[Rfam]
RNA sequence: UUUGGCCCUGAUUGUCCAAACGCAAUUCUUGUUAUUUUUAUUCAAGAACUGUGGGUGGACAUCAUUGCUCGG
Numbered sequence: 001u002u003u004g005g006c007c008c009u010g011a012u013u014g015u016c017c018a019a020a021c022g023c024a025a026u027u028c029u030u031g032u033u034a035u036u037u038u039u040a041u042u043c044a045a046g047a048a049c050u051g052u053g054g055g056u057g058g059a060c061a062u063c064a065u066u067g068c069u070c071g072g
Stems, first nucleotide, its partner, number of pairs: 002071001004069003009064004014060005021053004026048006

This 72-nucleotide RNA from Psylliodes chrysocephalus belongs to the Rfam family "mir-219 microRNA precursor family". It scores 67 bits against the family's covariance model. NCBI's taxonomy places the organism under Eukaryota, Protostomia, Eumetabola, Polyphaga, Psylliodes.